[Rfam]
RNA: sRNA-Xcc1
RNA sequence: GGCCGGGUAGCGCGCAACGAUAAAAGACCUUCGGGGAAAAUUGCGGGCCGUUUGAUUCCGGUGUUCUAAGUACCUGGCCACCCUUUC
Numbered sequence: 001g002g003c004c005g006g007g008u009a010g011c012g013c014g015c016a017a018c019g020a021u022a023a024a025a026g027a028c029c030u031u032c033g034g035g036g037a038a039a040a041u042u043g044c045g046g047g048c049c050g051u052u053u054g055a056u057u058c059c060g061g062u063g064u065u066c067u068a069a070g071u072a073c074c075u076g077g078c079c080a081c082c083c084u085u086u087c
Base pairs, nucleotide, nucleotide: 001079002078003077004076005075006074007073008072009071013045014044015043016042028035029034047062048061049060050059